Nucleotides: 283
Base pairs, nucleotide, nucleotide: 001020003018004017005016006015007014025040026039027038045281046280047279048278049277050276051275057272058271060269061268062267065262066261067260068259070257071256076255077254078253081250082249083248085246086245087244088243090242091241092240093239094238096236100235101234102233103232104231105230106229107228108224109223112221113220114219115218117215118214119213120212121211122210123209124208125207126165127164128163129162131160132159133158134157135156138153139152140151141150142149143148167171173206175204176203177202178201183198186195187194
Number, partner (000 for none) and nucleotide at each position: 001020g002000a003018g004017u005016g006015u007014g008000g009000u010000g011000g012000u013000g014007u015006g016005u017004g018003c019000c020001u021000g022000u023000a024000g025040u026039c027038c028000c029000a030000g031000c032000u033000a034000c035000u036000u037000g038027g039026g040025a041000g042000g043000c044000u045281g046280a047279g048278c049277c050276c051275g052000c053000c054000a055000g056000a057272u058271c059000g060269c061268u062267u063000g064000a065262g066261c067260c068259c069000a070257g071256g072000a073000g074000u075000u076255c077254u078253g079000g080000c081250c082249u083248g084000c085246a086245g087244u088243g089000c090242a091241c092240u093239a094238u095000g096236c097000u098000g099000a100235g101234c102233a103232g104231g105230c106229g107228u108224c109223c110000g111000c112221g113220c114219u115218a116000a117215g118214g119213u120212u121211g122210g123209c124208a125207u126165c127164a128163a129162u130000a131160u132159g133158g134157u135156g136000a137000g138153c139152c140151c141150c142149g143148g144000g145000g146000a147000g148143c149142u150141g151140g152139g153138g154000g155000a156135c157134a158133c159132c160131a161000g162129a163128u164127u165126g166000a167171c168000u169000a170000a171167g172000g173206a174000a175204g176203g177202g178201u179000g180000a181000a182000c183198u184000g185000g186195c187194c188000c189000a190000g191000g192000u193000c194187g195186g196000a197000g198183a199000a200000a201178g202177c203176u204175c205000c206173u207125g208124u209123g210122c211121c212120g213119g214118u215117c216000a217000g218115u219114a220113g221112u222000a223109g224108g225000a226000u227000c228107g229106c230105g231104c232103c233102u234101g235100u236096g237000a238094a239093u240092a241091g242090u243088c244087a245086c246085u247000a248083c249082a250081g251000c252000a253078u254077a255076g256071c257070c258000a259068g260067g261066g262065c263000a264000a265000c266000a267062g268061a269060g270000a271058g272057a273000c274000a275051u276050g277049g278048g279047c280046u281045u282000a283000g

About this RNA
This 283-nucleotide RNA sequence from Corythaixoides concolor belongs to the Rfam family "Metazoan signal recognition particle RNA". Rfam links the family to the GO terms SRP-dependent cotranslational protein targeting to membrane, signal sequence recognition and signal recognition particle, endoplasmic reticulum targeting. The family is grouped with related families in Rfam's "SRP clan". For this family Rfam cites "Towards the structure of the mammalian signal recognition particle" (Wild et al., Curr Opin Struct Biol, 2002). From the family's description: The signal recognition particle (SRP) is a universally conserved ribonucleoprotein. It is involved in the co-translational targeting of proteins to membranes. The eukaryotic SRP consists of a 300-nucleotide 7S RNA and six proteins: SRPs 72, 68, 54, 19, 14, and 9. Lineage of the source: Eukaryota > Vertebrata > Theropoda > Otidimorphae > Corythaixoides.